Annotation:
The record is a 170-nucleotide RNA from Streptomyces glaucescens, which matches "c-di-AMP riboswitch aptamer (ydaO/yuaA leader)" in Rfam.
RNA sequence: GCCCGGUGCCCGCGCAAACCCACCCGUGAACGGCAGGAGCGGGGGACCCACAGGUACAACCGCCUGUCCCGGUCUCCGGAACAGGCUUGGGGUCAAGUCGCGCCCCCGGCGCGGCCGGACAUCUCCAGUCCGCACCCGACAGCUCACCUCGCAGGCGCCGGAGAGGAAUU
Numbered sequence: 001g002c003c004c005g006g007u008g009c010c011c012g013c014g015c016a017a018a019c020c021c022a023c024c025c026g027u028g029a030a031c032g033g034c035a036g037g038a039g040c041g042g043g044g045g046a047c048c049c050a051c052a053g054g055u056a057c058a059a060c061c062g063c064c065u066g067u068c069c070c071g072g073u074c075u076c077c078g079g080a081a082c083a084g085g086c087u088u089g090g091g092g093u094c095a096a097g098u099c100g101c102g103c104c105c106c107c108g109g110c111g112c113g114g115c116c117g118g119a120c121a122u123c124u125c126c127a128g129u130c131c132g133c134a135c136c137c138g139a140c141a142g143c144u145c146a147c148c149u150c151g152c153a154g155g156c157g158c159c160g161g162a163g164a165g166g167a168a169u170u
Stems, first nucleotide, its partner, number of pairs: 001156003007038001009036001039152006049089002090137003098114004117131004
The organism belongs to Streptomyces, within Bacteria.